[Rfam]
RNA sequence: CUUGAGUGGUGAUGAUGAUCUGGUUGGACUAGAGUCUCUGAGCUUUUCUGAGGAUUCUUGAAACCACCUGAUCCGCUCUUA
Numbered sequence: 001c002u003u004g005a006g007u008g009g010u011g012a013u014g015a016u017g018a019u020c021u022g023g024u025u026g027g028a029c030u031a032g033a034g035u036c037u038c039u040g041a042g043c044u045u046u047u048c049u050g051a052g053g054a055u056u057c058u059u060g061a062a063a064c065c066a067c068c069u070g071a072u073c074c075g076c077u078c079u080u081a
Stems, first nucleotide, its partner, number of pairs: 004079001006077001007075003018072003022068003026064001032056002035053004040048003
Dot-bracket structure: ...(.((((........(((.(((.(.....((.((((.(((...))).)))).)).......).))).)))))).).)..
This 81-nucleotide RNA from Nannospalax galili belongs to the Rfam family "Small nucleolar RNA ZL8". Lineage of the source: Eukaryota > Metazoa > Eumetazoa > Craniata > Nannospalax. On this family, see Kishore et al., Genome Biol 2013: "Insights into snoRNA biogenesis and processing from PAR-CLIP of snoRNA core proteins and small RNA sequencing". The base pairs follow the family's consensus structure, which was predicted with RNAfold. Rfam links the family to the GO terms RNA processing and nucleolus.